[Rfam]
RNA: MIR390 microRNA precursor family
RNA sequence: UAGAAGAAUCUGUUAAGCUCAGGAGGGAUAGCGCCAUUGAUGAUCUUCAAGCCUUUUUCCGUGUGUAUUUUGAUCCUCGUUAGCGCUAUCCAUCCUGAGUUUCAUCGCUUCUUCUU
Numbered sequence: 001u002a003g004a005a006g007a008a009u010c011u012g013u014u015a016a017g018c019u020c021a022g023g024a025g026g027g028a029u030a031g032c033g034c035c036a037u038u039g040a041u042g043a044u045c046u047u048c049a050a051g052c053c054u055u056u057u058u059c060c061g062u063g064u065g066u067a068u069u070u071u072g073a074u075c076c077u078c079g080u081u082a083g084c085g086c087u088a089u090c091c092a093u094c095c096u097g098a099g100u101u102u103c104a105u106c107g108c109u110u111c112u113u114c115u116u
Stems, first nucleotide, its partner, number of pairs: 010107001016101009026091009